[Rfam]
RNA sequence: CUUCAGCGACCCGAGCCACAGCGGCUCGGCGCGCCCCUGGCCGUAGGUGGCCAGCACCGACUGCGCCUC
Numbered sequence: 001c002u003u004c005a006g007c008g009a010c011c012c013g014a015g016c017c018a019c020a021g022c023g024g025c026u027c028g029g030c031g032c033g034c035c036c037c038u039g040g041c042c043g044u045a046g047g048u049g050g051c052c053a054g055c056a057c058c059g060a061c062u063g064c065g066c067c068u069c
Stems, first nucleotide, its partner, number of pairs: 014026004029064002032059002037054003041050003
RNA: ASpks TB sRNA
Organism: Saccharothrix australiensis